[Rfam]
RNA: FMN riboswitch aptamer (RFN element)
RNA sequence: AACGUGCUCCGGGGUCGGUGAGAAUCCGAACCGGCGGUGACAGUCCGCGAGCGCUCCGGUUUCGGCCGGGGUGCCGAUCCGGUGGAAAUCCGGAACCGACGGUGAUGCGAGGGAGACCUCGCUAGUCCGGAAGGGAGGCAGCACGAG
Numbered sequence: 001a002a003c004g005u006g007c008u009c010c011g012g013g014g015u016c017g018g019u020g021a022g023a024a025u026c027c028g029a030a031c032c033g034g035c036g037g038u039g040a041c042a043g044u045c046c047g048c049g050a051g052c053g054c055u056c057c058g059g060u061u062u063c064g065g066c067c068g069g070g071g072u073g074c075c076g077a078u079c080c081g082g083u084g085g086a087a088a089u090c091c092g093g094a095a096c097c098g099a100c101g102g103u104g105a106u107g108c109g110a111g112g113g114a115g116a117c118c119u120c121g122c123u124a125g126u127c128c129g130g131a132a133g134g135g136a137g138g139c140a141g142c143a144c145g146a147g
Stems, first nucleotide, its partner, number of pairs: 003145006009138002016028003032098002034048004043096002051074003078094005100129003